[Rfam]
Rfam assigns this 397-nucleotide part of an RNA from Suillus discolor to the family "Eukaryotic large subunit ribosomal RNA".
RNA sequence: GGAGUUUGUCGUCGCAACAGUAAUUGGGCUUAGUACGAGAGGAACCGCCCAUUCAGAUAUUUGGUAUUUGCGUCUGUCCGAUCGGGCAAUGGCGCGAAGCUAUCAUCUGCCGGAUUAUGGCUGAACGCCUCUAAGUCAGAAUCCGUGCUGGAAGCGACGAUGUUUGGUCCCGCGAAUGUUGACGGAGUCGAGAUAGAGCUUAUGCUCGUGCACCAAAUCAGGCGGACUAGGCCCUUCGGACGGAAACGUUCGUUGGGUUCGUUCGCGAAUCGAAAAUGAAAUAUCCGCGGGGGUAAAUCCUUUGCAGACGACUUGAAUGGGAACGGGGUACUGUAAGCGGUAGAGUAGCCUUGUUGCUACGAUCCGCUGAGGUUAAGCCCUUGUUCUAUAGAUUUGU
Dot-bracket structure: .......((((((((..((((.(.(((((.................))))).)(((((...(((....(((((.(((((....)))))...)))))...)))..))))).(((....(((((...........)))))....))).))))...)))))))).......((((((...............................................................................................................))))))...(((((.(..(.......)..)....(((((((((.((.....((((.(..(((((......)))))..)))))....))....))).))))))...)))))..
Numbered sequence: 001g002g003a004g005u006u007u008g009u010c011g012u013c014g015c016a017a018c019a020g021u022a023a024u025u026g027g028g029c030u031u032a033g034u035a036c037g038a039g040a041g042g043a044a045c046c047g048c049c050c051a052u053u054c055a056g057a058u059a060u061u062u063g064g065u066a067u068u069u070g071c072g073u074c075u076g077u078c079c080g081a082u083c084g085g086g087c088a089a090u091g092g093c094g095c096g097a098a099g100c101u102a103u104c105a106u107c108u109g110c111c112g113g114a115u116u117a118u119g120g121c122u123g124a125a126c127g128c129c130u131c132u133a134a135g136u137c138a139g140a141a142u143c144c145g146u147g148c149u150g151g152a153a154g155c156g157a158c159g160a161u162g163u164u165u166g167g168u169c170c171c172g173c174g175a176a177u178g179u180u181g182a183c184g185g186a187g188u189c190g191a192g193a194u195a196g197a198g199c200u201u202a203u204g205c206u207c208g209u210g211c212a213c214c215a216a217a218u219c220a221g222g223c224g225g226a227c228u229a230g231g232c233c234c235u236u237c238g239g240a241c242g243g244a245a246a247c248g249u250u251c252g253u254u255g256g257g258u259u260c261g262u263u264c265g266c267g268a269a270u271c272g273a274a275a276a277u278g279a280a281a282u283a284u285c286c287g288c289g290g291g292g293g294u295a296a297a298u299c300c301u302u303u304g305c306a307g308a309c310g311a312c313u314u315g316a317a318u319g320g321g322a323a324c325g326g327g328g329u330a331c332u333g334u335a336a337g338c339g340g341u342a343g344a345g346u347a348g349c350c351u352u353g354u355u356g357c358u359a360c361g362a363u364c365c366g367c368u369g370a371g372g373u374u375a376a377g378c379c380c381u382u383g384u385u386c387u388a389u390a391g392a393u394u395u396g397u
Stems, first nucleotide, its partner, number of pairs: 008161008018150004023053001025051005054109005062102003069096005075088005111145003118138005169291006295395005301315001304312001320387006326380003330373002337367004342363001345360005
Its family is annotated with structural constituent of ribosome and ribosome in the Gene Ontology. Taxonomically the source falls in Suillus (Eukaryota, Fungi, Agaricomycotina, Agaricomycetes).